Bacterial RNase P class A: a 387-nucleotide RNA sequence from Proteiniborus sp. DW1. The base pairs follow the family's consensus structure, which is taken from published work. By type it is a ribozyme. Gene Ontology terms of the family: ribonuclease P activity, dimeric ribonuclease P complex and tRNA processing.
RNA sequence: UAAGUAAGUCAGAUGAUCGCAUGCAUUGGCAUGAGGAAAGUCCGAGCUCCAUAGGGCAGGGUGCUGGGUAAUACCCAGUGGAGGCAACUCCAAGGAAAGUGCAACAGAGAGAUACCGCCAGAACUUAAAAUACAGUAUGAUUACUGAUUUUGUAGUGAAAUAACAUAUAGUGUUAUCUGGUAAGGGUGGAAAGGUGAGGUAAGGGCUCACCAGAGACUAGGUGACUAGUUUGCUAUGUAAACCCCAUCUGGAGCAAGACCAAGUAGGGACUAGAAAAAACGGCUGCCCGUCGUCUCCCGUAGGUAGGUCGCUUGAGCCUAUUGGCGACAAUAGGUCUAGAUAGAUGAUCAUUUGAUACAGAACUCGGCUUAUAGACUUACUUGAUAU
Dot-bracket structure: ((((((((((((((((((.(((((....)))))....[[[.[[[[[((((...[[[[.((((((((((.....)))))(((((....)))).)((...(((((...........((((((((.....................................................))))))..)).......((((((.......)))))).((((((((....))))))).)..)))..)))))))))))))...((((......(((.........(((((.]]]]))))).)))........))))......((((((((....))))))))..........)))))))..........]]]]]]]].).))))))))))....